[Rfam]
RNA sequence: AGGUUCCCUCAAUCCCCACCGCGGAGCUACCAUCGAAGUCCUCAGUGACUCUCAAAUUGCUCUGGGGAAGGUCCUUGGAUCUCGGGCAGAAAGUGCCGUAGUGUAAUUACGCUACUAGCCUCCGCCGUCUUUACUCUCAAUUCAAGACAGGAAGCUCUUUGGGCUGAUCUUGGAGUUGGGCGCGAGAGUAUUGGUCAGAGUAAAGCGAUGUGUUGGGGUCGGUAUCUUCAAAGUUUACGUUGGGAUCCGAUAACUAAACAGGGCCUAUUCCGAGGAAACU
Dot-bracket structure: .((((.((((...[[[.[[..((((((.........((((......))))........))))))....(((.((((........((((.....))))((..............)).(......((..((...((((.......((((......((((...))))...)))).)))).))..)).....)......................]].]]].((((........................)))).........))))))).....)))).))))